Description
This 77-nucleotide RNA sequence from Alteromonas aestuariivivens belongs to the Rfam family "c-di-GMP-I riboswitch aptamer".
RNA sequence: UGUUUCUGUCGCCAAACUUAUCGUGAGGUAAGGACGGAAAGCCACGGGUCUUGACGCAAGACAGCCGGGUUGCAGUG
Numbered sequence: 001u002g003u004u005u006c007u008g009u010c011g012c013c014a015a016a017c018u019u020a021u022c023g024u025g026a027g028g029u030a031a032g033g034a035c036g037g038a039a040a041g042c043c044a045c046g047g048g049u050c051u052u053g054a055c056g057c058a059a060g061a062c063a064g065c066c067g068g069g070u071u072g073c074a075g076u077g
Base pairs, nucleotide, nucleotide: 012037013036017032018031019030020029021028022027040071041070042069043068045067046066047065048062049061050060
Source information
The source organism's lineage runs through Bacteria, Pseudomonadota, Gammaproteobacteria, Alteromonadaceae and Alteromonas.